[Rfam]
RNA sequence: CACAUCAGCGCGCUUUGCUGACAUGGCAACAAAUCUCUCCCUCUAGGACGCUAUUUGCUGCCACGUCAGCAAAGCGCGCUGAUGUGG
Numbered sequence: 001c002a003c004a005u006c007a008g009c010g011c012g013c014u015u016u017g018c019u020g021a022c023a024u025g026g027c028a029a030c031a032a033a034u035c036u037c038u039c040c041c042u043c044u045a046g047g048a049c050g051c052u053a054u055u056u057g058c059u060g061c062c063a064c065g066u067c068a069g070c071a072a073a074g075c076g077c078g079c080u081g082a083u084g085u086g087g
Base pairs, nucleotide, nucleotide: 001086002085003084004083005082006081007080008079009078010077011076012075013074014073015072016071017070018069019068020067021066024063025062026061027060028059030057031056032055033054034053037050040047041046
A member of the RNA family "MIR7486 microRNA precursor family" from Gossypium aridum, 87 nucleotides long. Rfam 15.1 lists 10,132 matches to the family in 36 species. The organism belongs to Gossypium, within Eukaryota. The base pairs follow the family's consensus structure, which was predicted with RNAalifold. Its family is annotated with RISC complex and miRNA-mediated post-transcriptional gene silencing in the Gene Ontology.